[Rfam]
RNA sequence: UACAGGGAUAUUGUCCUGUCACAGCAGUACGAUAUUUCCGUGUUACUGGUGUGUCGGGACAUUGUCCUUGUC
Numbered sequence: 001u002a003c004a005g006g007g008a009u010a011u012u013g014u015c016c017u018g019u020c021a022c023a024g025c026a027g028u029a030c031g032a033u034a035u036u037u038c039c040g041u042g043u044u045a046c047u048g049g050u051g052u053g054u055c056g057g058g059a060c061a062u063u064g065u066c067c068u069u070g071u072c
Base pairs, nucleotide, nucleotide: 003070004069005068006067012061013060014059015058016057017056018055022051023050025048026047027046028045029044
RNA: mir-1000 microRNA precursor family